[Rfam]
RNA sequence: GCCGGGAGGAGCCUCUCGUGAUGAUCCUUCUCUUGCUGAUGGCUGUGGCGGUGAUGAUCAAACCGGAGCCUCUAAGAAGUUGGCUGAGGAGGCUGUUCCUCC
Numbered sequence: 001g002c003c004g005g006g007a008g009g010a011g012c013c014u015c016u017c018g019u020g021a022u023g024a025u026c027c028u029u030c031u032c033u034u035g036c037u038g039a040u041g042g043c044u045g046u047g048g049c050g051g052u053g054a055u056g057a058u059c060a061a062a063c064c065g066g067a068g069c070c071u072c073u074a075a076g077a078a079g080u081u082g083g084c085u086g087a088g089g090a091g092g093c094u095g096u097u098c099c100u101c102c
Stems, first nucleotide, its partner, number of pairs: 007097002010094006
Annotation
Small nucleolar RNA SNORD125: a 102-nucleotide sequence from Crypturellus soui. The literature on the family includes a 2006 paper in Nucleic Acids Res by Yang et al., "snoSeeker: an advanced computational package for screening of guide and orphan snoRNA genes in the human genome". Its Rfam clan is "SNORD61 clan". The base pairs follow the family's consensus structure, which was predicted with WAR. By type it is a C/D-box small nucleolar RNA.